[Rfam]
RNA: tRNA
Organism: Aspergillus carbonarius
RNA sequence: GGGGUUAUAGCUCAGUGGUAGAGCGCUCGCUUUGCAUUCCUAUAGCUAAACUGCGAGAGGUCGAGGGUUCGAUCCCCUCUGACUCCA
Numbered sequence: 001g002g003g004g005u006u007a008u009a010g011c012u013c014a015g016u017g018g019u020a021g022a023g024c025g026c027u028c029g030c031u032u033u034g035c036a037u038u039c040c041u042a043u044a045g046c047u048a049a050a051c052u053g054c055g056a057g058a059g060g061u062c063g064a065g066g067g068u069u070c071g072a073u074c075c076c077c078u079c080u081g082a083c084u085c086c087a
Stems, first nucleotide, its partner, number of pairs: 001086007010024004026057005063079005